[Rfam]
RNA sequence: CGAACAAUGUAGGCAAAGGGAAGUCGGCAAAUCAGAUCCGUAACUUCGGGAAAAGGAUUGGCUUCCUCGCGCUCCGGACCGUCGACGCGUGAGGUGCCUUCCUGGCUGUGUCCAGCAGUGCGGGCGCUUCGCAGGCGGGUCAGGCCAGUUCAGGGCCGAGGGGUACUCAAGGGGGAAUCCGACUGUUUAAUUAAACAAAGCAUGGCAUGGCGCAACCCGGCGUGUGAGCGAUGUGAUUUCUGCCCAGUGCUCUGAAUGUCAAAGUGAAGAAAUUCAACCAAGCGCGGGUAAACGGCGGGAGUAACUAUGACUCUCUUAAGGUAGCCAAAUGCCUCGUCAUCUAAUUAGUGACGCGCAUGAAUGGAUUAACGAGAUUCCCUCUGUCCCUGUCUGCUAUCCGGCGAAACCACAGCCAAGGGAACGGGCUUGGCG
Numbered sequence: 001c002g003a004a005c006a007a008u009g010u011a012g013g014c015a016a017a018g019g020g021a022a023g024u025c026g027g028c029a030a031a032u033c034a035g036a037u038c039c040g041u042a043a044c045u046u047c048g049g050g051a052a053a054a055g056g057a058u059u060g061g062c063u064u065c066c067u068c069g070c071g072c073u074c075c076g077g078a079c080c081g082u083c084g085a086c087g088c089g090u091g092a093g094g095u096g097c098c099u100u101c102c103u104g105g106c107u108g109u110g111u112c113c114a115g116c117a118g119u120g121c122g123g124g125c126g127c128u129u130c131g132c133a134g135g136c137g138g139g140u141c142a143g144g145c146c147a148g149u150u151c152a153g154g155g156c157c158g159a160g161g162g163g164u165a166c167u168c169a170a171g172g173g174g175g176a177a178u179c180c181g182a183c184u185g186u187u188u189a190a191u192u193a194a195a196c197a198a199a200g201c202a203u204g205g206c207a208u209g210g211c212g213c214a215a216c217c218c219g220g221c222g223u224g225u226g227a228g229c230g231a232u233g234u235g236a237u238u239u240c241u242g243c244c245c246a247g248u249g250c251u252c253u254g255a256a257u258g259u260c261a262a263a264g265u266g267a268a269g270a271a272a273u274u275c276a277a278c279c280a281a282g283c284g285c286g287g288g289u290a291a292a293c294g295g296c297g298g299g300a301g302u303a304a305c306u307a308u309g310a311c312u313c314u315c316u317u318a319a320g321g322u323a324g325c326c327a328a329a330u331g332c333c334u335c336g337u338c339a340u341c342u343a344a345u346u347a348g349u350g351a352c353g354c355g356c357a358u359g360a361a362u363g364g365a366u367u368a369a370c371g372a373g374a375u376u377c378c379c380u381c382u383g384u385c386c387c388u389g390u391c392u393g394c395u396a397u398c399c400g401g402c403g404a405a406a407c408c409a410c411a412g413c414c415a416a417g418g419g420a421a422c423g424g425g426c427u428u429g430g431c432g
Stems, first nucleotide, its partner, number of pairs: 001400001002398002009394007018386003035059005044049001060167002064163001065161005071156004076151004080137004089132011101120001103118001105116004168172001173379007180371002184197003200234004205229002207223001209221001211219002238365003242296003247293002249289004254285001257284003265276004297315006316320001336352005413430005